RNA sequence: AAGGAUUUAUCGAAGCUUGUGUAGUGUCAACAAAUCACUACAGAAGUCAAAUCAAUCCAAAAUUAAAUUUAAAUGAUUUUCGGGUGGCAUGUUUAUUCUUUUAAAUAAUAAUCAAUGUCUAAUCGAAUAUCAAACAAAC
Numbered sequence: 001a002a003g004g005a006u007u008u009a010u011c012g013a014a015g016c017u018u019g020u021g022u023a024g025u026g027u028c029a030a031c032a033a034a035u036c037a038c039u040a041c042a043g044a045a046g047u048c049a050a051a052u053c054a055a056u057c058c059a060a061a062a063u064u065a066a067a068u069u070u071a072a073a074u075g076a077u078u079u080u081c082g083g084g085u086g087g088c089a090u091g092u093u094u095a096u097u098c099u100u101u102u103a104a105a106u107a108a109u110a111a112u113c114a115a116u117g118u119c120u121a122a123u124c125g126a127a128u129a130u131c132a133a134a135c136a137a138a139c
Base pairs, nucleotide, nucleotide: 003058004057005056006055015047016046017045020042021041022040023039024038025037026036074132075131077129079127080126081125082124083123086119087118088117089116090115093111094110095109096108097107099105
Annotation: The family of this 139-nucleotide RNA from Ichthyophthirius multifiliis is "Tetrahymena snoRNA TtnuHACA9". By type it is an H/ACA-box small nucleolar RNA. Gene Ontology terms of the family: nucleolus and RNA processing.